[Rfam]
RNA sequence: CCACGGUGACAGCAAUAUUUUUCAUCCACAGUAGUUCACCUUAUGAAUGUCGACACUUUGGGUCUGAGUGA
Numbered sequence: 001c002c003a004c005g006g007u008g009a010c011a012g013c014a015a016u017a018u019u020u021u022u023c024a025u026c027c028a029c030a031g032u033a034g035u036u037c038a039c040c041u042u043a044u045g046a047a048u049g050u051c052g053a054c055a056c057u058u059u060g061g062g063u064c065u066g067a068g069u070g071a
Base pairs, nucleotide, nucleotide: 002070003069004068008026009025